[Rfam]
RNA sequence: UUAACGGCUCUUUUAAGAGCCACAAAUUAAUAAAAAAAAGCAUGAU
Dot-bracket structure: .....((((((....)))))).........................
Numbered sequence: 001u002u003a004a005c006g007g008c009u010c011u012u013u014u015a016a017g018a019g020c021c022a023c024a025a026a027u028u029a030a031u032a033a034a035a036a037a038a039a040g041c042a043u044g045a046u
Stems, first nucleotide, its partner, number of pairs: 006021006